The record is a 79-nucleotide RNA sequence from Vanilla planifolia, which matches "Small nucleolar RNA SNORD34" in Rfam. Rfam links the family to the GO terms nucleolus and RNA processing. The organism belongs to Vanilla, within Eukaryota. snoRNA U34 is found in intron 5 of the ribosomal protein L13a gene in humans. Its Rfam clan is "SNORD34 clan".
RNA sequence: UAUGGCCAAUGAGGAAGCAACAUAAUGCCUACAUUGUUUGAUUCAAUCUUAUGAGAACAUGCAUCAUUCUGAGGCCAUC
Number, nucleotide and partner (000 for none) at each position: 001u000002a078003u000004g076005g075006c074007c073008a000009a000010u000011g000012a000013g000014g000015a000016a000017g000018c000019a000020a000021c000022a000023u000024a000025a000026u000027g000028c000029c000030u000031a000032c000033a000034u000035u000036g000037u000038u000039u000040g000041a000042u000043u000044c000045a000046a000047u000048c000049u000050u000051a000052u000053g000054a000055g000056a000057a000058c000059a000060u000061g000062c000063a000064u000065c000066a000067u000068u000069c000070u000071g000072a000073g007074g006075c005076c004077a000078u002079c000